[Rfam]
RNA sequence: CACACAUAAACCGGCACAUGGUUCUGGGUGUUGGGGGUCUGCUUUAAGACUUCUGAUCGAAUCGUGGUUUCUAUUUUUCUUUUACAAAAAGUUUAAGUAGAACGGGGGUUUAUGGAGGCCUAACCCAUACAAAGGAAAUUAAA
Number, nucleotide and partner (000 for none) at each position: 001c117002a000003c115004a000005c114006a113007u112008a111009a110010a109011c000012c107013g000014g000015c000016a000017c000018a000019u000020g000021g000022u000023u000024c000025u000026g000027g000028g000029u000030g000031u000032u000033g000034g000035g000036g000037g000038u000039c000040u000041g000042c000043u000044u000045u000046a000047a000048g000049a000050c000051u000052u000053c000054u000055g000056a000057u000058c000059g000060a000061a000062u000063c000064g000065u000066g000067g000068u000069u000070u101071c100072u099073a098074u097075u096076u000077u000078u000079c000080u000081u000082u000083u000084a000085c000086a000087a000088a000089a000090a000091g000092u000093u000094u000095a000096a075097g074098u073099a072100g071101a070102a000103c000104g000105g000106g000107g012108g000109u010110u009111u008112a007113u006114g005115g003116a000117g001118g000119c000120c000121u000122a000123a000124c000125c000126c000127a000128u000129a000130c000131a000132a000133a000134g000135g000136a000137a000138a000139u000140u000141a000142a000143a000
This 143-nucleotide RNA belongs to the Rfam family "rpsB sRNA". It is annotated as a small RNA. The base pairs follow the family's consensus structure, which is taken from published work. A reference for the family is Meyer et al. (2009), "Identification of candidate structured RNAs in the marine organism 'Candidatus Pelagibacter ubique'", BMC Genomics.